[Rfam]
Nucleotides: 133
Stems, first nucleotide, its partner, number of pairs: 003044004008038002016034005047093001049091005056083002060079002063077003094132001096130003100127008109118003
Number, partner (000 for none) and nucleotide at each position: 001000g002000u003044c004043g005042g006041g007000c008038a009037a010000g011000a012000u013000g014000u015000c016034g017033g018032c019031c020030u021000g022000c023000a024000a025000c026000c027000u028000u029000c030020a031019g032018g033017c034016u035000g036000c037009u038008u039000a040000a041006u042005u043004c044003g045000a046000u047093u048000u049091u050090u051089g052088c053087u054000u055000c056083g057082c058000u059000u060079u061078g062000a063077c064076c065075a066000c067000g068000g069000a070000u071000g072000u073000a074000c075065u076064g077063g078061c079060a080000c081000u082057g083056u084000c085000g086000a087053a088052g089051u090050a091049g092000c093047a094132g095000u096130u097129g098128g099000u100127g101126a102125g103124g104123g105122c106121c107120g108000a109118g110117c111116a112000u113000a114000c115000g116111u117110g118109c119000u120107c121106g122105g123104c124103c125102u126101u127100c128098u129097u130096a131000u132094u133000u

Description:
A member of the RNA family "Alphaproteobacterial sRNA ar35" from Rhizobium sp. Leaf306, 133 nucleotides long. Lineage of the source: Bacteria > Pseudomonadota > Alphaproteobacteria > Rhizobiaceae > Rhizobium. By type it is a small RNA.